[Rfam]
RNA sequence: AAAGCCACCUCGGGGUGCCCGGCUGCGGGCUGAGAUGCGCAAGCGAACCCGUUGAACCUGAACCGGUUAGAACCGGCGGAGGGAAGGUAUCCGGGCAUCCC
Numbered sequence: 001a002a003a004g005c006c007a008c009c010u011c012g013g014g015g016u017g018c019c020c021g022g023c024u025g026c027g028g029g030c031u032g033a034g035a036u037g038c039g040c041a042a043g044c045g046a047a048c049c050c051g052u053u054g055a056a057c058c059u060g061a062a063c064c065g066g067u068u069a070g071a072a073c074c075g076g077c078g079g080a081g082g083g084a085a086g087g088u089a090u091c092c093g094g095g096c097a098u099c100c101c
Base pairs, nucleotide, nucleotide: 007088008087009086010085011051012050013049014048016045017030018029019028020027021026037044038043057082058081059080063076064075065074066073